[Rfam]
RNA sequence: CGUGUGGUGUCCGGCUUAGAAUCGGAUGGCGACGCGGCCUAAUUGAGGU
Numbered sequence: 001c002g003u004g005u006g007g008u009g010u011c012c013g014g015c016u017u018a019g020a021a022u023c024g025g026a027u028g029g030c031g032a033c034g035c036g037g038c039c040u041a042a043u044u045g046a047g048g049u
Base pairs, nucleotide, nucleotide: 001036002035003034004033005032007030008029011025012024013023014022015019
RNA: L31-Gammaproteobacteria ribosomal protein leader